[Rfam]
RNA sequence: UGUGAUACCUAUCAAAGGAGUAGUUCCUUACCCAUGAGUUACUUUACCAUAUUUCAAAUUU
Numbered sequence: 001u002g003u004g005a006u007a008c009c010u011a012u013c014a015a016a017g018g019a020g021u022a023g024u025u026c027c028u029u030a031c032c033c034a035u036g037a038g039u040u041a042c043u044u045u046a047c048c049a050u051a052u053u054u055c056a057a058a059u060u061u
Stems, first nucleotide, its partner, number of pairs: 017045010